[Rfam]
RNA: ZMP/ZTP riboswitch aptamer (pfl RNA motif)
Organism: Spelaeicoccus albus
RNA sequence: UGUUGCCGUCGCGACCGGCGUUUGGAUGGAUCACCAUCGAGGAGCGGCAAGGUUGGAUUCAUCUGUCGUUCGCCUGGGCCGAUGAA
Numbered sequence: 001u002g003u004u005g006c007c008g009u010c011g012c013g014a015c016c017g018g019c020g021u022u023u024g025g026a027u028g029g030a031u032c033a034c035c036a037u038c039g040a041g042g043a044g045c046g047g048c049a050a051g052g053u054u055g056g057a058u059u060c061a062u063c064u065g066u067c068g069u070u071c072g073c074c075u076g077g078g079c080c081g082a083u084g085a086a
Stems, first nucleotide, its partner, number of pairs: 004052001008048005015041001017074004026037004063081001065079003